This 67-nucleotide sequence from Saimiri boliviensis belongs to the Rfam family "U7 small nuclear RNA". Lineage of the source: Eukaryota > Opisthokonta > Sarcopterygii > Tetrapoda > Saimiri boliviensis. The match comes from Rfam's covariance-model search (53 bits). About the family: Animal histone pre-mRNAs are spliced by a different mechanism than nuclear pre-mRNAs and self-splicing introns.
RNA sequence: CAGCAUUACUGCUCUUUUAGAAUUUGUCUAGCAGGUUUUCUGAGUUUUACAAAAAAAAAAAACCCCC
Numbered sequence: 001c002a003g004c005a006u007u008a009c010u011g012c013u014c015u016u017u018u019a020g021a022a023u024u025u026g027u028c029u030a031g032c033a034g035g036u037u038u039u040c041u042g043a044g045u046u047u048u049a050c051a052a053a054a055a056a057a058a059a060a061a062a063c064c065c066c067c
Stems, first nucleotide, its partner, number of pairs: 034064006041057001045054003
A reference for the family is Marz et al. (2007), "U7 snRNAs: a computational survey", Genomics Proteomics Bioinformatics.